RNA sequence: CAGAACUAUUAUUUCGAGAAGUCAAAUGAUAGGGUAACGCCUUGAAGGGCUUCCUCUGAUACUCCGACAUGCAGCAUACAAAAGAUAAGCCUGUAGUUGUGUGAAGCUCGGUGAAGUCGGCUGAGAGCUACCGUUAAAGUAUCUCGAUACUACGAAAACUGUCCAGCGGUGGAUGGUGUAGCCUAUAGGCCGGGAGUCUAAAAA
Number, nucleotide and partner (000 for none) at each position: 001c000002a000003g000004a000005a000006c000007u000008a000009u000010u000011a000012u000013u000014u000015c000016g000017a000018g053019a052020a051021g050022u049023c048024a000025a000026a000027u000028g000029a000030u000031a043032g042033g041034g040035u000036a000037a000038c000039g000040c034041c033042u032043u031044g000045a000046a000047g000048g023049g022050c021051u020052u019053c018054c196055u195056c194057u193058g000059a000060u000061a000062c000063u000064c111065c110066g109067a108068c103069a102070u101071g100072c099073a098074g097075c096076a000077u095078a094079c093080a092081a000082a000083a000084g000085a000086u000087a000088a000089g000090c000091c000092u080093g079094u078095a077096g075097u074098u073099g072100u071101g070102u069103g068104a000105a000106g000107c000108u067109c066110g065111g064112u000113g000114a000115a000116g000117u000118c192119g191120g190121c189122u188123g000124a000125g000126a000127g182128c181129u180130a179131c178132c154133g153134u152135u000136a000137a000138a000139g148140u147141a000142u000143c000144u000145c000146g000147a140148u139149a000150c000151u000152a134153c133154g132155a000156a000157a000158a177159c176160u175161g174162u173163c172164c171165a170166g000167c000168g000169g000170u165171g164172g163173a162174u161175g160176g159177u158178g131179u130180a129181g128182c127183c000184u000185a000186u000187a000188g122189g121190c120191c119192g118193g057194g056195a055196g054197u000198c000199u000200a000201a000202a000203a000204a000